[Rfam]
The record is an 85-nucleotide RNA from Solanum lycopersicum, which matches "MIR8024 microRNA precursor family" in Rfam. The base pairs follow the family's consensus structure, which was predicted with RNAalifold. NCBI's taxonomy places the organism under Eukaryota, eudicotyledons, asterids, Solanales, Solanum subgen. Lycopersicon. The family has 2 seed sequences and 661 matches in Rfam 15.1. Gene Ontology terms of the family: miRNA-mediated post-transcriptional gene silencing and RISC complex.
Nucleotides: 085
Stems, first nucleotide, its partner, number of pairs: 001083002004080003009076003013072002017068002025059004032053005
Number, partner (000 for none) and nucleotide at each position: 001083u002082u003000a004080a005079g006078g007000g008000a009076u010075u011074u012000a013072a014071a015000g016000a017068c018067u019000a020000c021000u022000a023000c024000u025059u026058g027057c028056a029000c030000a031000c032053u033052u034051g035050a036049a037000a038000a039000u040000u041000u042000u043000g044000a045000a046000g047000a048000c049036u050035u051034c052033a053032a054000c055000u056028u057027g058026c059025a060000a061000a062000a063000a064000u065000a066000g067018a068017g069000g070000a071014u072013u073000c074011g075010a076009a077000a078006c079005u080004u081000c082002a083001a084000c085000u